[Rfam]
RNA sequence: GAUAAAAUAAUUUUUGCAGGCAGUUUGGAUGGCAACCAUCAGAGGCCAGAUUAACACGAAAUGAGGAGGAUUCCGGAAGUUAAUGCACAAAAGGCGAAUCGGGAAGCAGUUUUUCCAAUAAGAAGCGCCCAAAGCCACACUAAAGCCAGACAUGUGAACCGGCGUUAGCGCCCC
Numbered sequence: 001g002a003u004a005a006a007a008u009a010a011u012u013u014u015u016g017c018a019g020g021c022a023g024u025u026u027g028g029a030u031g032g033c034a035a036c037c038a039u040c041a042g043a044g045g046c047c048a049g050a051u052u053a054a055c056a057c058g059a060a061a062u063g064a065g066g067a068g069g070a071u072u073c074c075g076g077a078a079g080u081u082a083a084u085g086c087a088c089a090a091a092a093g094g095c096g097a098a099u100c101g102g103g104a105a106g107c108a109g110u111u112u113u114u115c116c117a118a119u120a121a122g123a124a125g126c127g128c129c130c131a132a133a134g135c136c137a138c139a140c141u142a143a144a145g146c147c148a149g150a151c152a153u154g155u156g157a158a159c160c161g162g163c164g165u166u167a168g169c170g171c172c173c174c
Base pairs, nucleotide, nucleotide: 016086017085019047020046021045028040029039030038031037032036051083052082053081054080055079102130103129106126107125113124114123115122

Shown here is a 174-nucleotide sequence from Salmonella enterica, a member of the family "Salmonella enterica sRNA STnc210". Rfam's curators put it in the seed alignment. The organism belongs to Salmonella enterica subsp. arizonae, within Bacteria.